FMN riboswitch aptamer (RFN element): a 162-nucleotide RNA from Rickettsiales bacterium Ac37b. Lineage of the source: Bacteria > Pseudomonadati > Pseudomonadota > Alphaproteobacteria > Rickettsiales. A search with the family's covariance model found it, with a score of 101 bits.
RNA sequence: CAUUAUCUUCAGGGCAGAGUACAAUUCUCUACCGGCGGUAUUUUACAGUUGUUUAAUAAACUUACUUGUAAAGAGCCCGCGAGCUUUACUAGGGUUUCUUAGUAUAGCAGAUCUGGUCUAAGCCAGAGCCGACGGUCAUAGUCCGGAUGGAAGAAGAGAAUA
Number, nucleotide and partner (000 for none) at each position: 001c000002a000003u160004u159005a000006u157007c156008u155009u154010c153011a000012g000013g000014g000015c000016a000017g029018a028019g027020u000021a000022c000023a000024a000025u000026u000027c019028u018029c017030u000031a142032c141033c131034g130035g080036c079037g078038g077039u000040a000041u000042u000043u000044u000045a000046c000047a000048g000049u000050u000051g000052u000053u000054u000055a000056a000057u000058a000059a000060a000061c000062u000063u000064a000065c000066u000067u000068g000069u000070a000071a000072a000073g000074a000075g129076c128077c038078c037079g036080c035081g000082a000083g108084c107085u106086u000087u000088a000089c000090u000091a000092g000093g000094g000095u000096u000097u000098c000099u000100u000101a000102g000103u000104a000105u000106a085107g084108c083109a000110g000111a000112u127113c126114u125115g124116g123117u000118c000119u000120a000121a000122g000123c116124c115125a114126g113127a112128g076129c075130c034131g033132a000133c145134g144135g143136u000137c000138a000139u000140a000141g032142u031143c135144c134145g133146g000147a000148u000149g000150g000151a000152a000153g010154a009155a008156g007157a006158g000159a004160a003161u000162a000